[Rfam]
Nucleotides: 100
Stems, first nucleotide, its partner, number of pairs: 006088005011051004016045001017028004035044003057080004061074004
Number, partner (000 for none) and nucleotide at each position: 001000a002000a003000u004000a005000u006088g007087u008086u009085g010084c011051g012050g013049g014048g015000g016045a017028a018027c019026u020025c021000u022000u023000a024000u025020g026019a027018g028017u029000u030000g031000a032000g033000a034000a035044g036043g037042u038000u039000a040000a041000a042037a043036c044035c045016u046000g047000a048014c049013c050012c051011u052000u053000u054000g055000a056000a057080c058079c059078u060077g061074u062073c063072a064071g065000u066000u067000a068000a069000c070000a071064c072063u073062g074061g075000c076000g077060u078059a079058g080057g081000g082000a083000a084010g085009c086008a087007a088006u089000u090000c091000a092000u093000u094000a095000u096000a097000c098000g099000g100000a
A member of the RNA family "TPP riboswitch aptamer (THI element)" from Caproicibacter fermentans, 100 nucleotides long. The match comes from Rfam's covariance-model search (66 bits).